RNA sequence: UUGGCUGUAUGAGGAUCAUAGGAGCCACUUAAAAGCAAAAAAUAGCUUAAAAAUAAUGCUCCUGGGAAGGUCUGAGAAAGGGCCCUUUAAAUAUAUCUCCGAGAAGGGGAAGUCUCAAGUUGAGGCUAACACUGUACUGGAAAGGCUAUUUCGGUCAGCUACUAUUGAUUUUGUGCAAAUGGAAAGGAAAUCCGUUUUAAAGGAUUGAUCCAGUACUUAAUUAAUAUUGGGAAACAGUGUUGGUGCUAGAUUUAAUUGAGUGCGAUGAUCCAUUUCCAAACACAAUUCAGACUACUCUCCAGCCAA
Numbered sequence: 001u002u003g004g005c006u007g008u009a010u011g012a013g014g015a016u017c018a019u020a021g022g023a024g025c026c027a028c029u030u031a032a033a034a035g036c037a038a039a040a041a042a043u044a045g046c047u048u049a050a051a052a053a054u055a056a057u058g059c060u061c062c063u064g065g066g067a068a069g070g071u072c073u074g075a076g077a078a079a080g081g082g083c084c085c086u087u088u089a090a091a092u093a094u095a096u097c098u099c100c101g102a103g104a105a106g107g108g109g110a111a112g113u114c115u116c117a118a119g120u121u122g123a124g125g126c127u128a129a130c131a132c133u134g135u136a137c138u139g140g141a142a143a144g145g146c147u148a149u150u151u152c153g154g155u156c157a158g159c160u161a162c163u164a165u166u167g168a169u170u171u172u173g174u175g176c177a178a179a180u181g182g183a184a185a186g187g188a189a190a191u192c193c194g195u196u197u198u199a200a201a202g203g204a205u206u207g208a209u210c211c212a213g214u215a216c217u218u219a220a221u222u223a224a225u226a227u228u229g230g231g232a233a234a235c236a237g238u239g240u241u242g243g244u245g246c247u248a249g250a251u252u253u254a255a256u257u258g259a260g261u262g263c264g265a266u267g268a269u270c271c272a273u274u275u276c277c278a279a280a281c282a283c284a285a286u287u288c289a290g291a292c293u294a295c296u297c298u299c300c301a302g303c304c305a306a
Base pairs, nucleotide, nucleotide: 001306002305003304004303007300009298012273014271020063021062022061023060024059033048034047035046036045038043072290073289074288075287076286082246083245084243085242096110097109098108099107100106111127112126113125114124115123116122128241129240130239131238132237133236134235147226148225149224
RNA: Nuclear RNase P
Organism: Meloidogyne graminicola